The record is a 120-nucleotide RNA sequence from Mumia sp. ZJ1417, which matches "TPP riboswitch aptamer (THI element)" in Rfam. Lineage of the source: Bacteria > Actinomycetota > Actinomycetes > Propionibacteriales > Mumia. The match comes from Rfam's covariance-model search (59 bits).

RNA sequence: ACCCCACGACAGGGGAGCGCGGGUGCCUACGGGCACGGCGCGCUGAGAGUGCGGAAAGGCCGCAGACCCUCCGAACCUGCACCGGUUAGCACCGGCGAAGGGAGUCAUCCAUGGCUGAGG
Numbered sequence: 001a002c003c004c005c006a007c008g009a010c011a012g013g014g015g016a017g018c019g020c021g022g023g024u025g026c027c028u029a030c031g032g033g034c035a036c037g038g039c040g041c042g043c044u045g046a047g048a049g050u051g052c053g054g055a056a057a058g059g060c061c062g063c064a065g066a067c068c069c070u071c072c073g074a075a076c077c078u079g080c081a082c083c084g085g086u087u088a089g090c091a092c093c094g095g096c097g098a099a100g101g102g103a104g105u106c107a108u109c110c111a112u113g114g115c116u117g118a119g120g
Stems, first nucleotide, its partner, number of pairs: 006108001008106003011070004017043005050064005076101003082095004